The record is a 250-nucleotide RNA sequence from Papaver nudicaule, which matches "RNase MRP" in Rfam. Rfam 15.1 lists 3,510 matches to the family in 2,315 species.
[Rfam]
RNA sequence: GGACAUCAGGACGAAGUGAGCGGGUUCUUCUUUGGACCCAGGAAAGUCCCCGGGCCCUUCACCGUAGAGAUACGGGCUCGGAAACGAGUAAGCUACGAGCAGAGAGAUCCACUUGCUUUGGGCAAAAGGCUGAGACAUGCGUGGAGCCUUGGAUCUCUUUCCGUAGCAACCUUGGCCGAUUUAACACAGUUAUUCACUUGGUCCAUUCAUGUGUUUGGACUAACUGAACGGGGAUUACGAUUCUGAUGUC
Number, nucleotide and partner (000 for none) at each position: 001g000002g250003a249004c248005a247006u246007c245008a244009g243010g242011a241012c000013g000014a199015a198016g197017u196018g195019a194020g000021c000022g039023g038024g037025u036026u035027c034028u000029u000030c000031u000032u000033u000034g027035g026036a025037c024038c023039c022040a000041g000042g000043a000044a236045a235046g000047u000048c233049c232050c231051c230052g000053g000054g000055c000056c000057c000058u000059u000060c000061a000062c000063c074064g073065u072066a071067g000068a000069g000070a000071u066072a065073c064074g063075g000076g089077c088078u087079c086080g085081g000082a000083a000084a000085c080086g079087a078088g077089u076090a000091a000092g000093c000094u000095a000096c000097g000098a160099g159100c000101a000102g156103a000104g000105a000106g000107a154108u153109c152110c151111a000112c000113u000114u000115g000116c000117u000118u000119u000120g149121g148122g147123c146124a000125a000126a000127a000128g000129g000130c000131u000132g000133a000134g000135a142136c141137a000138u000139g000140c000141g136142u135143g000144g000145a000146g123147c122148c121149u120150u000151g110152g109153a108154u107155c000156u102157c000158u000159u099160u098161c000162c000163g000164u000165a000166g000167c000168a000169a000170c000171c000172u000173u000174g000175g000176c000177c000178g000179a000180u000181u000182u000183a000184a000185c000186a000187c000188a000189g000190u000191u000192a000193u000194u019195c018196a017197c016198u015199u014200g000201g220202u219203c218204c217205a216206u000207u000208c000209a000210u000211g000212u000213g000214u000215u000216u205217g204218g203219a202220c201221u000222a000223a000224c000225u000226g000227a000228a000229c000230g051231g050232g049233g048234a000235u045236u044237a000238c000239g000240a000241u011242u010243c009244u008245g007246a006247u005248g004249u003250c002
Description
It scores 78 bits against the family's covariance model. Clan: RNaseP clan. The family's consensus secondary structure is taken from published work. RNase MRP is an enzymatically active ribonucleoprotein with two distinct roles in eukaryotes. In mitochondria it plays a direct role in the initiation of mitochondrial DNA replication. In the nucleus it is involved in precursor rRNA processing, where it cleaves the internal transcribed spacer 1 between 18S and 5.8S rRNAs. By type it is a ribozyme.